[Rfam]
RNA sequence: CUUCAGCGAGCCCAACCACAGUGGCUGGUCGGGGCCCCUCCCCUGGCCGUACGUGGCGAGGAGGGCCUGGGCCUC
Numbered sequence: 001c002u003u004c005a006g007c008g009a010g011c012c013c014a015a016c017c018a019c020a021g022u023g024g025c026u027g028g029u030c031g032g033g034g035c036c037c038c039u040c041c042c043c044u045g046g047c048c049g050u051a052c053g054u055g056g057c058g059a060g061g062a063g064g065g066c067c068u069g070g071g072c073c074u075c
Stems, first nucleotide, its partner, number of pairs: 014026001016024002035071003038065002043060002047056003